Rfam assigns this 72-nucleotide sequence from Cucurbita maxima to the family "Small nucleolar RNA snoR60". The family's RNA type in Rfam is C/D-box small nucleolar RNA. Gene Ontology terms of the family: nucleolus and RNA processing.

RNA sequence: UGGCGUGUGAUGAAUUACUCGGAUUCCCCUUCAAGACUUCUUGAAUGAUGCACAAACCGAGUUUCUGACGUU
Numbered sequence: 001u002g003g004c005g006u007g008u009g010a011u012g013a014a015u016u017a018c019u020c021g022g023a024u025u026c027c028c029c030u031u032c033a034a035g036a037c038u039u040c041u042u043g044a045a046u047g048a049u050g051c052a053c054a055a056a057c058c059g060a061g062u063u064u065c066u067g068a069c070g071u072u
Base pairs, nucleotide, nucleotide: 002072003071004070005069
For this family Rfam cites "Fibrillarin genes encode both a conserved nucleolar protein and a novel small nucleolar RNA involved in ribosomal RNA methylation in Arabidopsis thaliana" (Barneche et al., J Biol Chem, 2000). Lineage of the source: Eukaryota > Streptophytina > Gunneridae > Pentapetalae > Cucurbita.